[Rfam]
RNA: raiA RNA
Nucleotides: 270
Base pairs, nucleotide, nucleotide: 001270003268004267005266006265007264008263009262011261012260013259014255015254016253017252018251059241061239062072065125066124067123068122069121070120081119082118086114091109117248138234139233140232141231142230143183144182145181146180147179148178149177187227188226189225190224196219197218203212204211205210
Number, partner (000 for none) and nucleotide at each position: 001270u002000c003268c004267u005266u006265c007264c008263a009262g010000g011261c012260u013259g014255u015254g016253g017252u018251u019000g020000c021000g022000g023000g024000a025000g026000c027000g028000c029000g030000c031000g032000g033000a034000c035000g036000u037000c038000c039000g040000u041000u042000u043000u044000g045000c046000g047000c048000a049000u050000c051000c052000c053000u054000a055000g056000u057000c058000c059241a060000g061239g062072a063000c064000a065125g066124a067123c068122g069121c070120g071000g072062u073000c074000a075000a076000a077000g078000g079000g080000a081119u082118c083000c084000a085000c086114g087000u088000a089000a090000g091109c092000c093000g094000a095000u096000g097000c098000g099000u100000g101000c102000g103000c104000g105000c106000a107000a108000a109091g110000g111000c112000g113000a114086u115000c116000a117248u118082g119081g120070c121069g122068c123067g124066u125065c126000c127000u128000a129000g130000a131000g132000g133000u134000c135000a136000g137000u138234c139233g140232c141231a142230c143183c144182g145181u146180c147179c148178g149177u150000c151000a152000u153000a154000c155000a156000c157000a158000c159000u160000g161000a162000g163000g164000c165000a166000a167000u168000a169000g170000g171000u172000g173000c174000c175000u176000c177149g178148c179147g180146g181145g182144c183143g184000a185000g186000c187227g188226g189225g190224c191000u192000a193000g194000u195000c196219g197218u198000g199000a200000g201000g202000c203212c204211g205210u206000u207000g208000c209000g210205g211204c212203g213000g214000u215000u216000g217000a218197g219196c220000a221000a222000a223000c224190g225189u226188c227187c228000c229000g230142g231141u232140g233139c234138g235000c236000a237000g238000g239061u240000g241059u242000g243000g244000g245000g246000u247000c248117a249000a250000a251018a252017a253016c254015c255014a256000g257000g258000u259013c260012a261011g262009c263008u264007g265006g266005g267004g268003g269000a270001a